[Rfam]
RNA sequence: UAACAAGCCUCCGGCACGCUUGGGUCUGCAGUGACCCUGUCGCAUUCCUACAGUGCUUGCCUGUACAGUUUUGAAAUGGAUUGAGGCCUUGCCCUACCCCUAUCCAGAGCAAGGUUAUAGGAACCUCAGACAAUC
Numbered sequence: 001u002a003a004c005a006a007g008c009c010u011c012c013g014g015c016a017c018g019c020u021u022g023g024g025u026c027u028g029c030a031g032u033g034a035c036c037c038u039g040u041c042g043c044a045u046u047c048c049u050a051c052a053g054u055g056c057u058u059g060c061c062u063g064u065a066c067a068g069u070u071u072u073g074a075a076a077u078g079g080a081u082u083g084a085g086g087c088c089u090u091g092c093c094c095u096a097c098c099c100c101u102a103u104c105c106a107g108a109g110c111a112a113g114g115u116u117a118u119a120g121g122a123a124c125c126u127c128a129g130a131c132a133a134u135c
Stems, first nucleotide, its partner, number of pairs: 004059005018043002022037005072128003087114006094107002
Background: Shown here is a 135-nucleotide RNA from Spermophilus dauricus, a member of the family "Small nucleolar RNA SNORA9". Lineage of the source: Eukaryota > Eumetazoa > Sarcopterygii > Tetrapoda > Spermophilus. The match comes from Rfam's covariance-model search (113 bits).